[Rfam]
RNA sequence: GGCUGACGGGAAGGCAGUGAUCCGCCGGGCGACACUUUGGUCGCCGAAUCGGCCCGGCGGGGAGCCAGUGGCGAAACCGGCCCCGGACAAC
Number, nucleotide and partner (000 for none) at each position: 001g000002g091003c000004u089005g088006a000007c085008g084009g083010g082011a000012a000013g066014g065015c064016a000017g000018u000019g000020a000021u000022c060023c059024g058025c057026c056027g055028g054029g053030c000031g000032a000033c000034a000035c000036u000037u000038u000039g078040g077041u074042c073043g072044c071045c070046g000047a000048a000049u000050c000051g000052g000053c029054c028055c027056g026057g025058c024059g023060g022061g000062g000063a000064g015065c014066c013067a000068g000069u000070g045071g044072c043073g042074a041075a000076a000077c040078c039079g000080g000081c000082c010083c009084c008085g007086g000087a000088c005089a004090a000091c002

The record is a 91-nucleotide sequence from Dactylosporangium vinaceum, which matches "c-di-GMP-II-GAG riboswitch aptamer" in Rfam. The family's consensus secondary structure is taken from published work. Its Rfam clan is "c-di-GMP_II riboswitch clan". Rfam links the family to the GO terms regulation of gene expression and cyclic-di-GMP binding. A search with the family's covariance model found it, with a score of 56 bits. For this family Rfam cites "Bioinformatic analysis of riboswitch structures uncovers variant classes with altered ligand specificity" (Weinberg et al., Proc Natl Acad Sci U S A, 2017).